Rfam assigns this 75-nucleotide sequence from Trematosphaeria pertusa to the family "bZIP non canonical Hac1/Xbp1 intron". From the family's description: bZIP intron RNA is a non-canonical intron that was first reported in HAC1 gene in yeast and XBP1 gene in Metazoa. Lineage of the source: Eukaryota > Dikarya > Ascomycota > saccharomyceta > Trematosphaeria. It scores 44 bits against the family's covariance model.
[Rfam]
RNA sequence: CCGCCGACUUCGACCAGACACGAUAUCCUGCAGAGAUAUUGUGCGACCUGCAGUGUCAGUCGAAGGCUUUGGCGG
Numbered sequence: 001c002c003g004c005c006g007a008c009u010u011c012g013a014c015c016a017g018a019c020a021c022g023a024u025a026u027c028c029u030g031c032a033g034a035g036a037u038a039u040u041g042u043g044c045g046a047c048c049u050g051c052a053g054u055g056u057c058a059g060u061c062g063a064a065g066g067c068u069u070u071g072g073c074g075g
Stems, first nucleotide, its partner, number of pairs: 001075007010063005022040006045057003